[Rfam]
RNA sequence: AGGCCAUGAGGAUACUUGUGCGCUCCCCUGUGAUUCUAGGGUUAAUCACAGCAGUCUGAUUAAUCGGACGAAAGCUAGCACAUCUGAGCUU
Numbered sequence: 001a002g003g004c005c006a007u008g009a010g011g012a013u014a015c016u017u018g019u020g021c022g023c024u025c026c027c028c029u030g031u032g033a034u035u036c037u038a039g040g041g042u043u044a045a046u047c048a049c050a051g052c053a054g055u056c057u058g059a060u061u062a063a064u065c066g067g068a069c070g071a072a073a074g075c076u077a078g079c080a081c082a083u084c085u086g087a088g089c090u091u
Stems, first nucleotide, its partner, number of pairs: 001091004